Source information:
Shown here is a 583-nucleotide part of an RNA from Clostridium novyi, a member of the family "Bacterial small subunit ribosomal RNA". Its family is annotated with ribosome and structural constituent of ribosome in the Gene Ontology. The family's consensus secondary structure is taken from published work.

[Rfam]
Nucleotides: 583
Stems, first nucleotide, its partner, number of pairs: 001474002003471003007468007015458002019422005024316001026314008034305002040055004064300007077124002079121005086103002089100004105116004127289002130287004136283002138278003141274001143272002148187006154163003166179004193266004198234007208223002212221002237257002240254005320374007332363003337356002342351003381412001386407007428450007477582001479579001482575002487569004492564003497559006505551004513544001515542004521537003526533002
Number, partner (000 for none) and nucleotide at each position: 001474u002473g003471a004470c005469g006000g007468g008467g009466a010465c011464c012463c013462g014000c015458a016457c017000a018000a019422g020421c021420a022419g023418c024316g025000g026314a027313g028312c029311a030310u031309g032308u033307g034305g035304u036000u037000u038000a039000a040055u041054u042053c043052g044000a045000a046000g047000c048000a049000a050000c051000g052043c053042g054041a055040a056000g057000a058000a059000c060000c061000u062000u063000a064300c065299c066298u067297a068296g069295a070294c071000u072000u073000g074000a075000c076000a077124u078123c079121u080120c081119c082118u083117g084000a085000a086103u087102u088000a089100c090099u091098c092097g093000u094000a095000a096000c097092u098091g099090a100089g101000g102087a103086a104000g105116u106115c107114c108113c109000u110000u111000c112000g113108g114107g115106g116105a117083c118082a119081g120080g121079a122000a123078g124077a125000c126000a127289g128288g129000u130287g131286g132285u133284g134000c135000a136283u137282g138278g139277u140276u141274g142000u143272c144271g145000u146000c147000a148187g149186c150185u151184c152183g153182u154163g155162u156161c157000g158000u159000g160000a161156g162155a163154u164000g165000u166179u167178g168177g169176g170000u171000u172000a173000a174000g175000u176169c177168c178167c179166g180000c181000a182153a183152c184151g185150a186149g187148c188000g189000c190000a191000a192000c193266c194265c195264u196263u197000a198234u199233u200232g201231u202230u203229a204228g205000u206000u207000g208223c209222u210000a211000c212221u213220a214000u215000u216000a217000a218000g219000u220213u221212a222209a223208g224000c225000a226000c227000u228204c229203u230202a231201a232200c233199g234198a235000g236000a237257c238256u239000g240254c241253c242252g243251c244250g245000g246000u247000u248000a249000a250244c251243g252242u253241g254240g255000a256238g257237g258000a259000a260000g261000g262000u263196g264195g265194g266193g267000a268000u269000g270000a271144c272143g273000u274141c275000a276140a277139a278138u279000c280000a281000u282137c283136a284133u285132g286131c287130c288128c289127c290000u291000u292000a293000u294070g295069u296068c297067u298066a299065g300064g301000g302000c303000u304035a305034c306000a307033c308032a309031c310030g311029u312028g313027c314026u315000a316024c317000a318000a319000u320374g321373g322372c323371u324370g325369g326368u327000a328000c329000a330000a331000c332363g333362a334361g335000c336000a337356g338355c339000a340000a341000u342351c343350c344349c345000g346000c347000g348000a349344g350343g351342g352000g353000g354000a355338g356337c357000a358000a359000a360000a361334c362333u363332u364000g365000a366000a367000a368326g369325c370324c371323a372322g373321u374320c375000c376000c377000a378000g379000u380000u381412c382000g383000g384000a385000u386407u387406g388405u389404a390403g391402g392401c393000u394000g395000a396000a397000a398000c399000u400000c401392g402391c403390c404389u405388a406387c407386a408000u409000g410000a411000a412381g413000u414000u415000g416000g417000a418023g419022u420021u421020g422019c423000u424000a425000g426000u427000a428450a429449u430448c431447g432446c433445g434444a435000a436000u437000c438000a439000g440000c441000a442000u443000g444434u445433c446432g447431c448430g449429g450428u451000g452000a453000a454000u455000a456000c457016g458015u459000u460000c461000c462013c463012g464011g465010g466009u467008c468007u469005u470004g471003u472000a473002c474001a475000c476000a477582c478000c479579g480000c481000c482575c483574g484000u485000c486000a487569c488568a489567c490566c491000a492564u493563g494562a495000g496000a497559g498558c499557c500556g501555g502554u503000a504000a505551c506550a507549c508548c509000c510000g511000a512000a513544g514000c515542c516541c517540g518539u519000g520000a521537g522536g523535u524000a525000a526533c527532c528000g529000u530000a531000a532527g533526g534000a535523g536522c537521c538000a539518g540517c541516g542515g543000u544513c545000g546000a547000a548508g549507g550506u551505g552000g553000g554502a555501u556500u557499g558498g559497u560000g561000a562494u563493u564492g565000g566490g567489g568488u569487g570000a571000a572000g573000u574483c575482g576000u577000a578000a579479c580000a581000a582477g583000g